The record is a 97-nucleotide sequence from Firmicutes bacterium CAG:582, which matches "Bacterial small signal recognition particle RNA" in Rfam. It is annotated as a non-coding RNA gene. A reference for the family is Rosenblad et al. (2003), "SRPDB: Signal Recognition Particle Database", Nucleic Acids Res. Pairs were carried over by alignment from the consensus structure, which is taken from published work. Clan: SRP clan. Its family is annotated with SRP-dependent cotranslational protein targeting to membrane, signal sequence recognition and signal recognition particle, plasma membrane targeting in the Gene Ontology. The signal recognition particle (SRP) is a universally conserved ribonucleoprotein involved in the co-translational targeting of proteins to membranes. Lineage of the source: Bacteria > Bacillati > Bacillota.
RNA sequence: AUAAUUAACUUGCACAACAAUUAUGUUGGAAUCUGGUCAGAGUAGGAAUACAGCAGCCAUAACAACCUCUAAUUGUGUGUGCUUUUUUUAUAUUUAA
Number, nucleotide and partner (000 for none) at each position: 001a000002u000003a000004a000005u000006u090007a089008a088009c000010u000011u000012g082013c081014a080015c077016a000017a076018c075019a074020a073021u072022u071023a068024u000025g066026u065027u064028g063029g000030a000031a000032u000033c000034u059035g058036g057037u056038c000039a000040g000041a000042g051043u050044a049045g000046g000047a000048a000049u044050a043051c042052a000053g000054c000055a000056g037057c036058c035059a034060u000061a000062a000063c028064a027065a026066c025067c000068u023069c000070u000071a022072a021073u020074u019075g018076u017077g015078u000079g000080u014081g013082c012083u000084u000085u000086u000087u000088u008089u007090a006091u000092a000093u000094u000095u000096a000097a000